[Rfam]
RNA sequence: GAAAAGAAUCUGUAAAGCUCAGGAGGGAUAGCGUCUAUGUAUAUAUGUUGUCUGUAUAUAUAUCCUUAAUUUUAUGCAUGAUAUCAGUCAAAGACGCUGUCUAUCCUGAGCCUCACGGCUUCUUUUU
Numbered sequence: 001g002a003a004a005a006g007a008a009u010c011u012g013u014a015a016a017g018c019u020c021a022g023g024a025g026g027g028a029u030a031g032c033g034u035c036u037a038u039g040u041a042u043a044u045a046u047g048u049u050g051u052c053u054g055u056a057u058a059u060a061u062a063u064c065c066u067u068a069a070u071u072u073u074a075u076g077c078a079u080g081a082u083a084u085c086a087g088u089c090a091a092a093g094a095c096g097c098u099g100u101c102u103a104u105c106c107u108g109a110g111c112c113u114c115a116c117g118g119c120u121u122c123u124u125u126u127u
Stems, first nucleotide, its partner, number of pairs: 010118001017111008026102010